RNA: THF (Tetrahydrofolate) riboswitch aptamer
Organism: Hominimerdicola alba
RNA sequence: UACAGAGUAGAGUGCCCUGCGUUAAGUGUCUGUCAGACGGGGAGUUGCUGACAGGACGAAAAGCAUGUAUGCUUGCGGUUCGGUGCUCGCAUCCCGCUGAA
Numbered sequence: 001u002a003c004a005g006a007g008u009a010g011a012g013u014g015c016c017c018u019g020c021g022u023u024a025a026g027u028g029u030c031u032g033u034c035a036g037a038c039g040g041g042g043a044g045u046u047g048c049u050g051a052c053a054g055g056a057c058g059a060a061a062a063g064c065a066u067g068u069a070u071g072c073u074u075g076c077g078g079u080u081c082g083g084u085g086c087u088c089g090c091a092u093c094c095c096g097c098u099g100a101a
Base pairs, nucleotide, nucleotide: 001101003099004098005097010088011087012086013085014084015083016082019079020077021076022075026057027056029055030054031053032052033051034050035049036048040094041093042092044090061074062073063072064071